[Rfam]
RNA sequence: UAUAUGUAGAGAGAGCUUCCUUGAGUCCAUUCACAGGUCGUGAUAUGAUCCAAUUAGCUUCCGACUCAUUCAUCCAAAUACCGAGUCGCCAAAAUUCGAACUAGACUCGUUAAAUGAAUGAAUGAUGCGGUAGACAAAUUGGAUCAUUGAUUCUCUUUGAUUGGACUGAAGGGAGCUCCCUCUCUCUUCUGU
Numbered sequence: 001u002a003u004a005u006g007u008a009g010a011g012a013g014a015g016c017u018u019c020c021u022u023g024a025g026u027c028c029a030u031u032c033a034c035a036g037g038u039c040g041u042g043a044u045a046u047g048a049u050c051c052a053a054u055u056a057g058c059u060u061c062c063g064a065c066u067c068a069u070u071c072a073u074c075c076a077a078a079u080a081c082c083g084a085g086u087c088g089c090c091a092a093a094a095u096u097c098g099a100a101c102u103a104g105a106c107u108c109g110u111u112a113a114a115u116g117a118a119u120g121a122a123u124g125a126u127g128c129g130g131u132a133g134a135c136a137a138a139u140u141g142g143a144u145c146a147u148u149g150a151u152u153c154u155c156u157u158u159g160a161u162u163g164g165a166c167u168g169a170a171g172g173g174a175g176c177u178c179c180c181u182c183u184c185u186c187u188u189c190u191g192u
Base pairs, nucleotide, nucleotide: 013178014177015176016175017174018173019172020171024167025166026165027164028163029162036155058133059132061130062129063128067124068123069122070121075116
Dot-bracket structure: ............((((((((...((((((......(.....................((.(((...((((....(........................................)....))))...))).)).....................)......))))))...))))))))..............